[Rfam]
RNA sequence: UGGCCGCACGUGCUCUGACGAGGUUGCACUACUGUGCGCUGAGAAGCAGUGCAAUAAUAUUGUCAAAGCAUCCGCGACCAGC
Numbered sequence: 001u002g003g004c005c006g007c008a009c010g011u012g013c014u015c016u017g018a019c020g021a022g023g024u025u026g027c028a029c030u031a032c033u034g035u036g037c038g039c040u041g042a043g044a045a046g047c048a049g050u051g052c053a054a055u056a057a058u059a060u061u062g063u064c065a066a067a068g069c070a071u072c073c074g075c076g077a078c079c080a081g082c
Base pairs, nucleotide, nucleotide: 002079003078007074010071011070012069013068014067016065017064018063019062023055024054025053026052027051028050029049030048034040

Shown here is an 82-nucleotide RNA sequence from Trichechus manatus, a member of the family "mir-301 microRNA precursor family". It scores 75 bits against the family's covariance model. Gene Ontology terms of the family: miRNA-mediated post-transcriptional gene silencing and RISC complex. The source organism's lineage runs through Eukaryota, Opisthokonta, Metazoa, Theria and Trichechus manatus. The base pairs follow the family's consensus structure, which was predicted with WAR.